The record is a 56-nucleotide sequence from Martinezella rhizogenes, which matches "sul1 RNA" in Rfam. The base pairs follow the family's consensus structure, which is taken from published work. Lineage of the source: Bacteria > Pseudomonadati > Alphaproteobacteria > Martinezella > Martinezella rhizogenes.
RNA sequence: CACGGACCCGGUGAAACUCCGGGUGGCUCUUCUGGCCGCCGAUCCGCCAGAUAACG
Numbered sequence: 001c002a003c004g005g006a007c008c009c010g011g012u013g014a015a016a017c018u019c020c021g022g023g024u025g026g027c028u029c030u031u032c033u034g035g036c037c038g039c040c041g042a043u044c045c046g047c048c049a050g051a052u053a054a055c056g
Stems, first nucleotide, its partner, number of pairs: 006024006031051006